[Rfam]
RNA sequence: CCCUGACACCUUUCACGACGGAUCGUCCGGCACGUACCUGCCGGUGGAGGGAUUGAUCA
Numbered sequence: 001c002c003c004u005g006a007c008a009c010c011u012u013u014c015a016c017g018a019c020g021g022a023u024c025g026u027c028c029g030g031c032a033c034g035u036a037c038c039u040g041c042c043g044g045u046g047g048a049g050g051g052a053u054u055g056a057u058c059a
Stems, first nucleotide, its partner, number of pairs: 009051007027044006
Rfam assigns this 59-nucleotide sequence from Cellulomonas triticagri to the family "msiK RNA". The family has 120 seed sequences and 1,374 matches in Rfam 15.1. The family's consensus secondary structure is taken from published work.